[Rfam]
RNA: RT-9 RNA
RNA sequence: GAUUAUUAAGAUUACGGUUCUAAUAACAUGACUUGAAAUUAUUGCAAGGGAGUUUUGUUCUCUCGCUUUACAGCGUAAACACAUGAAUAAUG
Number, nucleotide and partner (000 for none) at each position: 001g000002a000003u026004u025005a024006u023007u022008a021009a000010g019011a018012u017013u000014a000015c000016g000017g012018u011019u010020c000021u008022a007023a006024u005025a004026a003027c000028a000029u000030g000031a000032c000033u000034u000035g000036a000037a000038a000039u000040u000041a000042u000043u000044g000045c000046a000047a000048g000049g000050g000051a000052g000053u000054u000055u000056u000057g000058u000059u000060c000061u000062c000063u000064c075065g074066c073067u072068u000069u000070a000071c000072a067073g066074c065075g064076u000077a000078a000079a000080c000081a000082c000083a000084u000085g000086a000087a000088u000089a000090a000091u000092g000